RNA sequence: GGCACAGGAUGUUUUUUCACGAUGGUCUUCAGAUGUCUACUAUAGGCACUGUUGAGAAAAACAGUUGGCAAGGCUGAUGCCAGAAA
Numbered sequence: 001g002g003c004a005c006a007g008g009a010u011g012u013u014u015u016u017u018c019a020c021g022a023u024g025g026u027c028u029u030c031a032g033a034u035g036u037c038u039a040c041u042a043u044a045g046g047c048a049c050u051g052u053u054g055a056g057a058a059a060a061a062c063a064g065u066u067g068g069c070a071a072g073g074c075u076g077a078u079g080c081c082a083g084a085a086a
Base pairs, nucleotide, nucleotide: 001081002080003079004078

The record is an 86-nucleotide RNA from Dipodomys ordii, which matches "Small nucleolar RNA SNORD35" in Rfam. The family's RNA type in Rfam is C/D-box small nucleolar RNA. U35 is a C/D box snoRNA located in intron 6 of ribosomal protein L13A and intron 3 of ribosomal protein S11 in humans and at homologous positions in mouse and chicken ribosomal protein genes. U35 guides the methylation of 2'-O-ribose sites in 28S rRNA. Rfam 15.1 lists 1,842 matches to the family in 634 species. A reference for the family is Nicoloso et al. (1996), "Intron-encoded, antisense small nucleolar RNAs: the characterization of nine novel species points to their direct role as guides for the 2'-O-ribose methylation of rRNAs", J Mol Biol.